[Rfam]
RNA sequence: CUUCACCGACCCGAGCCACAGCGGCCGGUCGUCGGCGCGACCCGUGCCGUAGGUGGCGAUCAGCGCCUCCGCCUC
Numbered sequence: 001c002u003u004c005a006c007c008g009a010c011c012c013g014a015g016c017c018a019c020a021g022c023g024g025c026c027g028g029u030c031g032u033c034g035g036c037g038c039g040a041c042c043c044g045u046g047c048c049g050u051a052g053g054u055g056g057c058g059a060u061c062a063g064c065g066c067c068u069c070c071g072c073c074u075c
Base pairs, nucleotide, nucleotide: 015025016024017023033071034070038065039064045058047056048055049054
RNA: ASpks TB sRNA